Plant small nucleolar RNA U3: a 217-nucleotide sequence from Brassica rapa. The family's RNA type in Rfam is C/D-box small nucleolar RNA. Its Rfam clan is "U3 clan".
[Rfam]
RNA sequence: ACGACCUUACUUGAACAGGAUCUGUUCUAUAGGCUCGUACCUCUGUAUCCUUGAUUUCUAAGGAGACAGGCCCCUAAACCAGGUUGAUGAAUCAUGGCCGUGCGAUCUGAGUGUGAUUAACGGCUACGAUUCUCCUAGGAGACUCUGCGCUGUAGAGGAUCGCUAUCUGGUUUGGCCUUGACCUCUCCGGGGUGGUCGCACGGUUGUCUGACAGGCC
Numbered sequence: 001a002c003g004a005c006c007u008u009a010c011u012u013g014a015a016c017a018g019g020a021u022c023u024g025u026u027c028u029a030u031a032g033g034c035u036c037g038u039a040c041c042u043c044u045g046u047a048u049c050c051u052u053g054a055u056u057u058c059u060a061a062g063g064a065g066a067c068a069g070g071c072c073c074c075u076a077a078a079c080c081a082g083g084u085u086g087a088u089g090a091a092u093c094a095u096g097g098c099c100g101u102g103c104g105a106u107c108u109g110a111g112u113g114u115g116a117u118u119a120a121c122g123g124c125u126a127c128g129a130u131u132c133u134c135c136u137a138g139g140a141g142a143c144u145c146u147g148c149g150c151u152g153u154a155g156a157g158g159a160u161c162g163c164u165a166u167c168u169g170g171u172u173u174g175g176c177c178u179u180g181a182c183c184u185c186u187c188c189g190g191g192g193u194g195g196u197c198g199c200a201c202g203g204u205u206g207u208c209u210g211a212c213a214g215g216c217c
Stems, first nucleotide, its partner, number of pairs: 001038002003035001005033003013027006043069004048064006079215002082212001097204011110164004120153005128145002131142004166191005174183002
Source information
Rfam's curators write: Small nucleolar RNAs (snoRNAs) are involved in the processing and modification of rRNA in the nucleolus. There are two main classes of snoRNAs: the box C/D class, and the box H/ACA class. U3 snoRNA is a member of the box C/D class. A search with the family's covariance model found it, with a score of 186 bits. The family has 24 seed sequences and 3,759 matches in Rfam 15.1. Pairs were carried over by alignment from the consensus structure, which is taken from published work. For this family Rfam cites "Nuclear retention elements of U3 small nucleolar RNA" (Speckmann et al., Mol Cell Biol, 1999).